[Rfam]
RNA sequence: CGGUCGAGAGCUGCGCAAUGGGUCGCGUGGCGAGAAUGGACCGGUCUCAUUGUCGUCUCGUAUGGUCGCCCGUGCAGUCGCCCAACUGCCCGUGCG
Numbered sequence: 001c002g003g004u005c006g007a008g009a010g011c012u013g014c015g016c017a018a019u020g021g022g023u024c025g026c027g028u029g030g031c032g033a034g035a036a037u038g039g040a041c042c043g044g045u046c047u048c049a050u051u052g053u054c055g056u057c058u059c060g061u062a063u064g065g066u067c068g069c070c071c072g073u074g075c076a077g078u079c080g081c082c083c084a085a086c087u088g089c090c091c092g093u094g095c096g
Base pairs, nucleotide, nucleotide: 001043002042003041004040005039010031011030012029013028014027015026016025067096068095069094071092074089075088076087077086
The record is a 96-nucleotide sequence from Thalassorhabdomicrobium marinisediminis, which matches "Rhodo-rpoB RNA" in Rfam. It is annotated as a cis-regulatory element. The match comes from Rfam's covariance-model search (59 bits). Lineage of the source: Bacteria > Pseudomonadati > Pseudomonadota > Rhodobacterales > Thalassorhabdomicrobium.